The family of this 208-nucleotide sequence from Paraburkholderia sp. LEh10 is "Burkholderia sRNA 11".
RNA sequence: AUCCCUUCGCUAAGGAGCGUCCUAUGCGAAAAAUCACGGCCGCUUUGAUAGUGAGCCUGAUAGGGCUGACAGCGCUGUCCGUGUCGACCACGGCUGUUGCAUGCGGUGAUCAGAUUCAGAGCAGAAGCGAUGGAAAAUGAUCCCGCCGCCCGAAGGCGCCGAGUGCGCACGAAAAAAGGCCUUCAUCCGUUGAUGAAGGCCUUUUACU
Numbered sequence: 001a002u003c004c005c006u007u008c009g010c011u012a013a014g015g016a017g018c019g020u021c022c023u024a025u026g027c028g029a030a031a032a033a034u035c036a037c038g039g040c041c042g043c044u045u046u047g048a049u050a051g052u053g054a055g056c057c058u059g060a061u062a063g064g065g066c067u068g069a070c071a072g073c074g075c076u077g078u079c080c081g082u083g084u085c086g087a088c089c090a091c092g093g094c095u096g097u098u099g100c101a102u103g104c105g106g107u108g109a110u111c112a113g114a115u116u117c118a119g120a121g122c123a124g125a126a127g128c129g130a131u132g133g134a135a136a137a138u139g140a141u142c143c144c145g146c147c148g149c150c151c152g153a154a155g156g157c158g159c160c161g162a163g164u165g166c167g168c169a170c171g172a173a174a175a176a177a178g179g180c181c182u183u184c185a186u187c188c189g190u191u192g193a194u195g196a197a198g199g200c201c202u203u204u205u206a207c208u
Stems, first nucleotide, its partner, number of pairs: 002036001006030005013023003038057003041053004063151004072100003075096001079093005103146003108142004115134004156168004174205014
The source organism's lineage runs through Bacteria, Pseudomonadota, Burkholderiales, Burkholderiaceae and Paraburkholderia.
By type it is a small RNA.
Rfam's curators write: Identified by RNA-seq, RACE and Northern blot.
A reference for the family is Yoder-Himes et al. (2009), "Mapping the Burkholderia cenocepacia niche response via high-throughput sequencing", Proc Natl Acad Sci U S A.
The match comes from Rfam's covariance-model search (133 bits).
Pairs were carried over by alignment from the consensus structure, which was predicted with RNAfold.